[Rfam]
RNA sequence: AGAGUCAGCGAGGCGGUUGCGGAUUCAAGGUUUGAAUCUGAGGAAAGUCCGGACUCCCAAAAACUCAGACUUGCUGGAUAAUGCCCAGUGCGCGUGAGCGUGAGGAUAGUGCCACAGAAAAAUACCGCCCGUGAAUACGGGUAAGGGUGCAAAGGUGCGGUAAGAGCGCACCAGCAGUAUCGAGAGGUACUGGCUCGGUAAACCCCGGUCGGGAGCAAGGUCGGACGAAACAAGGGUUGAGUUUUUUCCUGUUUCGGCAGUUCACCCCCUUCUUCGGAAGGCAAGUGAACGAGAACCGCAUGAGGUUGAAGGCAACUUCAAUCCCAGAUAGAUAACUGCCCUCCAGUGCAGCGCAUUGGUAGAACAGAAUCCGGCUUAUGUCUAACUCUUCUC
Numbered sequence: 001a002g003a004g005u006c007a008g009c010g011a012g013g014c015g016g017u018u019g020c021g022g023a024u025u026c027a028a029g030g031u032u033u034g035a036a037u038c039u040g041a042g043g044a045a046a047g048u049c050c051g052g053a054c055u056c057c058c059a060a061a062a063a064c065u066c067a068g069a070c071u072u073g074c075u076g077g078a079u080a081a082u083g084c085c086c087a088g089u090g091c092g093c094g095u096g097a098g099c100g101u102g103a104g105g106a107u108a109g110u111g112c113c114a115c116a117g118a119a120a121a122a123u124a125c126c127g128c129c130c131g132u133g134a135a136u137a138c139g140g141g142u143a144a145g146g147g148u149g150c151a152a153a154g155g156u157g158c159g160g161u162a163a164g165a166g167c168g169c170a171c172c173a174g175c176a177g178u179a180u181c182g183a184g185a186g187g188u189a190c191u192g193g194c195u196c197g198g199u200a201a202a203c204c205c206c207g208g209u210c211g212g213g214a215g216c217a218a219g220g221u222c223g224g225a226c227g228a229a230a231c232a233a234g235g236g237u238u239g240a241g242u243u244u245u246u247u248c249c250u251g252u253u254u255c256g257g258c259a260g261u262u263c264a265c266c267c268c269c270u271u272c273u274u275c276g277g278a279a280g281g282c283a284a285g286u287g288a289a290c291g292a293g294a295a296c297c298g299c300a301u302g303a304g305g306u307u308g309a310a311g312g313c314a315a316c317u318u319c320a321a322u323c324c325c326a327g328a329u330a331g332a333u334a335a336c337u338g339c340c341c342u343c344c345a346g347u348g349c350a351g352c353g354c355a356u357u358g359g360u361a362g363a364a365c366a367g368a369a370u371c372c373g374g375c376u377u378a379u380g381u382c383u384a385a386c387u388c389u390u391c392u393c
Stems, first nucleotide, its partner, number of pairs: 001389005007383002011379001012340007020040009045377003049374005054215004068210003072207002074088004089103001090101004104205002109203002111199003125146002127142006154172006174194001175192007219297003304323008
RNA: Bacterial RNase P class A